Nucleotides: 139
Base pairs, nucleotide, nucleotide: 001057002056003055004054005053006052007051009049015044018041019040020039021038023037024036025035026034073135075133076132077131078130079129092121093120094119095118097115098114099113100112
Number, partner (000 for none) and nucleotide at each position: 001057c002056c003055c004054u005053g006052u007051a008000u009049u010000c011000a012000g013000a014000a015044g016000c017000a018041a019040u020039u021038a022000u023037g024036g025035g026034c027000u028000g029000c030000u031000u032000g033000u034026g035025c036024c037023c038021u039020g040019g041018u042000c043000a044015u045000a046000g047000a048000u049009a050000c051007u052006g053005c054004a055003g056002g057001g058000a059000a060000a061000g062000a063000u064000a065000g066000a067000u068000a069000c070000u071000g072000c073135u074000g075133a076132a077131a078130g079129c080000c081000u082000u083000a084000c085000c086000c087000u088000g089000u090000u091000a092121u093120u094119u095118g096000g097115a098114a099113g100112g101000u102000c103000c104000g105000u106000u107000c108000c109000u110000g111000u112100c113099c114098u115097u116000g117000c118095c119094a120093a121092a122000c123000c124000c125000u126000g127000g128000u129079g130078c131077u132076u133075u134000g135073g136000a137000a138000c139000a